[Rfam]
RNA sequence: GGUCGGGUAGCGCGUAGCUAUACAAUACCUCCGGGGAAGGCGCGCGGCCGUCUGAUAGAGCGGUGUUCAACUGCCCGACCGCCCUUAU
Numbered sequence: 001g002g003u004c005g006g007g008u009a010g011c012g013c014g015u016a017g018c019u020a021u022a023c024a025a026u027a028c029c030u031c032c033g034g035g036g037a038a039g040g041c042g043c044g045c046g047g048c049c050g051u052c053u054g055a056u057a058g059a060g061c062g063g064u065g066u067u068c069a070a071c072u073g074c075c076c077g078a079c080c081g082c083c084c085u086u087a088u
Stems, first nucleotide, its partner, number of pairs: 001080009012045004018040002028035002047064005
Annotation: This 88-nucleotide RNA from Alloalcanivorax marinus belongs to the Rfam family "sRNA-Xcc1". It is annotated as a small RNA. The organism belongs to Alloalcanivorax, within Bacteria. A search with the family's covariance model found it, with a score of 57 bits. Pairs were carried over by alignment from the consensus structure, which was predicted with RNAalifold. For this family Rfam cites "sRNA-Xcc1, an integron-encoded transposon- and plasmid-transferred trans-acting sRNA, is under the positive control of the key virulence regulators HrpG and HrpX of Xanthomonas campestris pathovar campestris" (Chen et al., RNA Biol, 2011).